[Rfam]
Rfam assigns this 98-nucleotide RNA sequence from Pseudomonas aeruginosa to the family "Bacterial small signal recognition particle RNA".
RNA sequence: UGUCGGUCCCCCCGCAACGAUUACCCGUCAACCUGGUCAGGUCCGGAAGGAAGCAGCCACAGCGGGAACAUCGUGUGCCGGGGUGUGGCUGGCGGGGC
Numbered sequence: 001u002g003u004c005g006g007u008c009c010c011c012c013c014g015c016a017a018c019g020a021u022u023a024c025c026c027g028u029c030a031a032c033c034u035g036g037u038c039a040g041g042u043c044c045g046g047a048a049g050g051a052a053g054c055a056g057c058c059a060c061a062g063c064g065g066g067a068a069c070a071u072c073g074u075g076u077g078c079c080g081g082g083g084u085g086u087g088g089c090u091g092g093c094g095g096g097g098c
Stems, first nucleotide, its partner, number of pairs: 004091005010083005015075001017074005024066005034059004042051003
Pairs were carried over by alignment from the consensus structure, which is taken from published work.
Lineage of the source: Bacteria > Pseudomonadota > Gammaproteobacteria > Pseudomonadales > Pseudomonas.